RNA sequence: GGUGGAGUCACUGGAGGCAGCGGUUCAUCGAUCUCUUCCUGAGAUUUGUUGUGAAAAUACAAAACAUGAAUCGGUCGAUAAACCUCUGCAUCCAGCGCUCACUCU
Numbered sequence: 001g002g003u004g005g006a007g008u009c010a011c012u013g014g015a016g017g018c019a020g021c022g023g024u025u026c027a028u029c030g031a032u033c034u035c036u037u038c039c040u041g042a043g044a045u046u047u048g049u050u051g052u053g054a055a056a057a058u059a060c061a062a063a064a065c066a067u068g069a070a071u072c073g074g075u076c077g078a079u080a081a082a083c084c085u086c087u088g089c090a091u092c093c094a095g096c097g098c099u100c101a102c103u104c105u
Base pairs, nucleotide, nucleotide: 013093014092015091018088019087020086022084023083024082025081027079028078029077030076031075032074033073036070037069038068
Source information
A member of the RNA family "MIR162_1 microRNA precursor family" from Prunus persica, 105 nucleotides long. Its family is annotated with RISC complex and miRNA-mediated post-transcriptional gene silencing in the Gene Ontology. The sequence is in the family's curated seed alignment.